mir-166 microRNA precursor family: a 105-nucleotide RNA from Arabis alpina. This family represents the plant microRNA (miRNA) precursor mir-166. The base pairs follow the family's consensus structure, which was predicted with PFOLD. A reference for the family is Reinhart et al. (2002), "MicroRNAs in plants", Genes Dev. It scores 81 bits against the family's covariance model. Lineage of the source: Eukaryota > Embryophyta > Magnoliopsida > Arabideae > Arabis.

[Rfam]
RNA sequence: UUUGAGGGGACUGUUGUCUGGCUCGAAGACUCUAAUUCUAAUCUCAGAUCUGAUGAUUUGAUUAGGAUUUUUAGUGUCUUCGGACCAGGCUUCAUUCCCCCCAAU
Numbered sequence: 001u002u003u004g005a006g007g008g009g010a011c012u013g014u015u016g017u018c019u020g021g022c023u024c025g026a027a028g029a030c031u032c033u034a035a036u037u038c039u040a041a042u043c044u045c046a047g048a049u050c051u052g053a054u055g056a057u058u059u060g061a062u063u064a065g066g067a068u069u070u071u072u073a074g075u076g077u078c079u080u081c082g083g084a085c086c087a088g089g090c091u092u093c094a095u096u097c098c099c100c101c102c103a104a105u
Base pairs, nucleotide, nucleotide: 002104003103004102006100007099008098009097010096012094013093016090017089018088019087020086021085024082025081026080